Rfam assigns this 137-nucleotide sequence from Myotis brandtii to the family "Small nucleolar RNA SNORA42/SNORA80 family". Rfam links the family to the GO terms RNA processing and nucleolus. Pairs were carried over by alignment from the consensus structure, which was predicted with RNAalifold. Taxonomically the source falls in Myotis (Eukaryota, Teleostomi, Tetrapoda, Eutheria). About the family: The members of this family belong to the H/ACA class of snoRNAs that guide the sites of modification of uridines to pseudouridines. Human ACA42 (SNORA42) was cloned from HeLa cells by immunoprecipitation with anti-GAR1 antibody. Its is predicted to guide the pseudouridylation of residues U109 and U572 of 18S rRNA. ACA42 shares the same host gene with ACA26, ACA46, ACA50. This family also includes mammalian snoRNA ACA67 (SNORA80) which was identified by computational screening and its expression in mouse experimentally verified by Northern blot and primer extension analysis. It scores 112 bits against the family's covariance model.
RNA sequence: GCAAGACAAUGGAUUUAUGCUGGGCCCCUCUCUGUGGGCCUCUCAUAGUGCAUCUAUGCCAGGGUAAAUUGCAGCCUCAAACCAUUGCCCAGCUUCCUUACCUGUGGGCUGGGAGCAAUGAAGGGGGUUGUACAGUG
Number, nucleotide and partner (000 for none) at each position: 001g059002c058003a057004a000005g054006a053007c000008a000009a000010u000011g000012g000013a000014u000015u048016u047017a046018u045019g044020c000021u000022g041023g040024g039025c037026c036027c000028c000029u000030c000031u000032c000033u000034g000035u000036g026037g025038g000039c024040c023041u022042c000043u000044c019045a018046u017047a016048g015049u000050g000051c000052a000053u006054c005055u000056a000057u003058g002059c001060c000061a000062g000063g000064g000065u000066a000067a000068a000069u000070u000071g000072c130073a129074g128075c127076c126077u125078c000079a000080a000081a000082c000083c120084a119085u000086u000087g000088c115089c000090c111091a110092g109093c108094u107095u106096c000097c000098u000099u000100a000101c000102c000103u000104g000105u000106g095107g094108g093109c092110u091111g090112g000113g000114a000115g088116c000117a000118a000119u084120g083121a000122a000123g000124g000125g077126g076127g075128u074129u073130g072131u000132a000133c000134a000135g000136u000137g000